[Rfam]
Background:
A member of the RNA family "Bacterial RNase P class B" from Rummeliibacillus sp. TYF005, 390 nucleotides long.
RNA sequence: AAGAACAAGUAAUCGCUGCAACGCUUGACGUUGUUGAGGAAAGUCCAUGCUCGCACGGUUCUGAGAUGACCGUAGUGUUCGUGCUUAGUGAAUAAAUAAGCUAAGGCAGUCUAAUGGCUGACGGCGAGAGGAAAACCUAAGUCUCAUUUGGGAUAUGGUUGAAACUCUAUGAAAGUGCCACAGUGACGAAGUUAUUACGGAAACGUAAUAAGUGGAACGAGGUAAACCCCGCGAGUGAGCAACCCAAAUUAUGGUAGGGGCGUUCUCCUGAAGGAAAUGAAUGGAUGGAGAGACAAAAGUGUUUUAACGCUUUUGUAGAUAGAUGAUUACUACCCAGUAGUACGAGGCGAGAGCCGUUAUAGUACUAGGGCACAAAACAUGGCUUACGUU
Number, nucleotide and partner (000 for none) at each position: 001a000002a000003g000004a390005a389006c388007a000008a331009g330010u329011a328012a327013u326014c325015g000016c036017u000018g034019c033020a032021a031022c000023g000024c000025u000026u000027g000028a000029c000030g000031u021032u020033g019034u018035u000036g016037a000038g000039g000040a000041a385042a384043g383044u000045c382046c381047a380048u379049g378050c239051u238052c237053g236054c235055a073056c072057g071058g070059u000060u069061c068062u000063g000064a000065g000066a000067u000068g061069a060070c058071c057072g056073u055074a000075g000076u000077g000078u000079u234080c233081g232082u231083g230084c105085u104086u103087a102088g101089u100090g000091a000092a000093u000094a000095a000096a000097u000098a000099a000100g089101c088102u087103a086104a085105g084106g122107c120108a119109g118110u117111c116112u000113a000114a000115u000116g111117g110118c109119u108120g107121a000122c106123g229124g228125c000126g000127a168128g167129a166130g000131g000132a000133a000134a160135a159136c158137c157138u000139a000140a000141g154142u153143c152144u151145c150146a000147u000148u000149u000150g145151g144152g143153a142154u141155a000156u000157g137158g136159u135160u134161g000162a000163a000164a000165c000166u129167c128168u127169a000170u000171g000172a000173a000174a000175g227176u226177g223178c222179c221180a000181c000182a000183g000184u000185g000186a000187c000188g000189a000190a000191g000192u211193u210194a209195u208196u207197a206198c205199g204200g000201a000202a000203a000204c199205g198206u197207a196208a195209u194210a193211a192212g000213u000214g000215g000216a000217a000218c000219g000220a000221g179222g178223u177224a000225a000226a176227c175228c124229c123230c083231g082232c081233g080234a079235g054236u053237g052238a051239g050240c000241a000242a000243c259244c258245c257246a000247a000248a000249u000250u000251a000252u000253g000254g000255u000256a000257g245258g244259g243260g000261c000262g000263u292264u291265c290266u289267c288268c287269u000270g000271a000272a000273g000274g000275a000276a000277a000278u000279g000280a000281a000282u000283g000284g000285a000286u000287g268288g267289a266290g265291a264292g263293a316294c315295a314296a313297a312298a311299g310300u309301g308302u307303u000304u000305u000306a000307a302308c301309g300310c299311u298312u297313u296314u295315g294316u293317a000318g000319a000320u000321a000322g000323a000324u000325g014326a013327u012328u011329a010330c009331u008332a000333c370334c369335c368336a000337g000338u367339a366340g365341u364342a363343c362344g000345a000346g000347g000348c000349g000350a000351g000352a000353g000354c000355c000356g000357u000358u000359a000360u000361a000362g343363u342364a341365c340366u339367a338368g335369g334370g333371c000372a000373c000374a000375a000376a000377a000378c049379a048380u047381g046382g045383c043384u042385u041386a000387c000388g006389u005390u004
About the family: Ribonuclease P (RNase P) is a ubiquitous endoribonuclease, found in archaea, bacteria and eukarya as well as chloroplasts and mitochondria. It is annotated as a ribozyme. The match comes from Rfam's covariance-model search (298 bits).